This 383-nucleotide sequence from Desulfacinum hydrothermale belongs to the Rfam family "Bacterial RNase P class A". A search with the family's covariance model found it, with a score of 312 bits.
RNA sequence: GGAGGAGCGUACCCGAUCGCCGGUUGCAUCCCAGGGUGCAACGGGAGGAAAGUCCGGGCUCCACAGGGCAGGGUGCUGGGUAACACCCAGUCUCGGUGACGAGCAGGAAAGUGCCACAGAAAACAGACCGCCGAGCCUUCUCCCCCGGGGAGGACUCGGUAAGGGUGAAACGGUGAGGUAAGAGCUCACCAGUCCCGGUGGUGACACCGGGAGCUUGGUAAACCCCACCCGGAGCAAGGCCAAGUAGGGGAGCGCUGGAGGGUGGCCCGCCCGAGGCUCCCGGGUCGGCUGCUGGAGCCCGACGGCAACGUCGGGCCUAGAGGAAUGAUCGGGGCCCGCCCACUGCGGCGGGAACAGAACCCGGCUUACGCGCUCCUCCAAUC
Numbered sequence: 001g002g003a004g005g006a007g008c009g010u011a012c013c014c015g016a017u018c019g020c021c022g023g024u025u026g027c028a029u030c031c032c033a034g035g036g037u038g039c040a041a042c043g044g045g046a047g048g049a050a051a052g053u054c055c056g057g058g059c060u061c062c063a064c065a066g067g068g069c070a071g072g073g074u075g076c077u078g079g080g081u082a083a084c085a086c087c088c089a090g091u092c093u094c095g096g097u098g099a100c101g102a103g104c105a106g107g108a109a110a111g112u113g114c115c116a117c118a119g120a121a122a123a124c125a126g127a128c129c130g131c132c133g134a135g136c137c138u139u140c141u142c143c144c145c146c147g148g149g150g151a152g153g154a155c156u157c158g159g160u161a162a163g164g165g166u167g168a169a170a171c172g173g174u175g176a177g178g179u180a181a182g183a184g185c186u187c188a189c190c191a192g193u194c195c196c197g198g199u200g201g202u203g204a205c206a207c208c209g210g211g212a213g214c215u216u217g218g219u220a221a222a223c224c225c226c227a228c229c230c231g232g233a234g235c236a237a238g239g240c241c242a243a244g245u246a247g248g249g250g251a252g253c254g255c256u257g258g259a260g261g262g263u264g265g266c267c268c269g270c271c272c273g274a275g276g277c278u279c280c281c282g283g284g285u286c287g288g289c290u291g292c293u294g295g296a297g298c299c300c301g302a303c304g305g306c307a308a309c310g311u312c313g314g315g316c317c318u319a320g321a322g323g324a325a326u327g328a329u330c331g332g333g334g335c336c337c338g339c340c341c342a343c344u345g346c347g348g349c350g351g352g353a354a355c356a357g358a359a360c361c362c363g364g365c366u367u368a369c370g371c372g373c374u375c376c377u378c379c380a381a382u383c
Stems, first nucleotide, its partner, number of pairs: 001379010012333007020045002023042006050367003054364005059234004066268004071230005076090005091105001092103004106225002111223002113219003128164002130160006137153006172190006192214001193212008238290004248281006260272004297316008